[Rfam]
RNA sequence: AUUUUACUAAGAAGAAGGGAGAGAAUAGGCUCGAUGAACUUCUGGCAACCUGUUUCCACCGACAAGGUGCUUGUCCUGCAUCAAUCUGAUAAAGCAUAGUAU
Numbered sequence: 001a002u003u004u005u006a007c008u009a010a011g012a013a014g015a016a017g018g019g020a021g022a023g024a025a026u027a028g029g030c031u032c033g034a035u036g037a038a039c040u041u042c043u044g045g046c047a048a049c050c051u052g053u054u055u056c057c058a059c060c061g062a063c064a065a066g067g068u069g070c071u072u073g074u075c076c077u078g079c080a081u082c083a084a085u086c087u088g089a090u091a092a093a094g095c096a097u098a099g100u101a102u
Stems, first nucleotide, its partner, number of pairs: 005101004013043005021032003026078004044071004049067002051064004079094001081092001083090001

The family of this 102-nucleotide sequence from Ohtaekwangia koreensis is "SAM riboswitch aptamer (S box leader)". It scores 45 bits against the family's covariance model. Gene Ontology term of the family: regulation of gene expression.